[Rfam]
RNA sequence: UGGAAGUUCUAAUACGUGUGUGAACUGCAUAAACUUGUUCAUAUAUCACUAAACUUCCUAUAUUAUUGAUUUGCUCUCUGAUGACCGCAGUUGUGUUAAGUUUUUAACUGGGGACAGAUACGGAGCGGACAUUA
Numbered sequence: 001u002g003g004a005a006g007u008u009c010u011a012a013u014a015c016g017u018g019u020g021u022g023a024a025c026u027g028c029a030u031a032a033a034c035u036u037g038u039u040c041a042u043a044u045a046u047c048a049c050u051a052a053a054c055u056u057c058c059u060a061u062a063u064u065a066u067u068g069a070u071u072u073g074c075u076c077u078c079u080g081a082u083g084a085c086c087g088c089a090g091u092u093g094u095g096u097u098a099a100g101u102u103u104u105u106a107a108c109u110g111g112g113g114a115c116a117g118a119u120a121c122g123g124a125g126c127g128g129a130c131a132u133u134a
Stems, first nucleotide, its partner, number of pairs: 002058005016046004023039003071128007085113002090108004
Rfam assigns this 134-nucleotide RNA sequence from Ceutorhynchus assimilis to the family "Small Cajal body specific RNA 8". Rfam's curators write: scaRNAs are a specific class of small nuclear RNAs which localise to the Cajal bodies and guide the modification of RNA polymerase II transcribed spliceosomal RNAs U1, U2, U4, U5 and U12. U92 belong to the H/ACA box class of guide RNAs as it has the predicted hairpin-hinge-hairpin-tail structure, conserved H/ACA-box motifs and is found associated with GAR1. By type it is a small Cajal body RNA. Rfam 15.1 lists 955 matches to the family in 741 species. Rfam links the family to the GO terms RNA processing, Cajal body and nucleolus. A search with the family's covariance model found it, with a score of 54 bits.